[Rfam]
RNA sequence: GGCCUCUGGAGAGACUCAUAAUGUAUGAGCACCGAAGGAGCAAGAUUACUAAGUUAAAUAUUUUGUAUUUUUUUAUGAAUGAUUUUUUAUUAAAAGUCUAAAAAUAUAAGUGAUUAAUUUUAGUAAUUCAAACUCUCAGGUAAAAGGACAGAGGAC
Number, nucleotide and partner (000 for none) at each position: 001g156002g000003c154004c153005u152006c151007u150008g149009g000010a000011g000012a000013g000014a000015c029016u028017c027018a026019u000020a000021a000022u000023g000024u000025a000026u018027g017028a016029g015030c000031a141032c140033c139034g137035a136036a000037g000038g135039a134040g133041c000042a000043a000044g128045a127046u126047u125048a124049c123050u122051a121052a120053g119054u000055u000056a000057a000058a000059u000060a000061u000062u000063u000064u000065g000066u000067a000068u000069u000070u000071u000072u000073u000074u000075a000076u000077g000078a000079a000080u000081g000082a000083u000084u000085u000086u000087u000088u000089a000090u000091u000092a000093a000094a000095a000096g000097u000098c000099u000100a000101a000102a000103a000104a000105u000106a000107u000108a000109a000110g000111u000112g000113a000114u000115u000116a000117a000118u000119u053120u052121u051122a050123g049124u048125a047126a046127u045128u044129c000130a000131a000132a000133c040134u039135c038136u035137c034138a000139g033140g032141u031142a000143a000144a000145a000146g000147g000148a000149c008150a007151g006152a005153g004154g003155a000156c001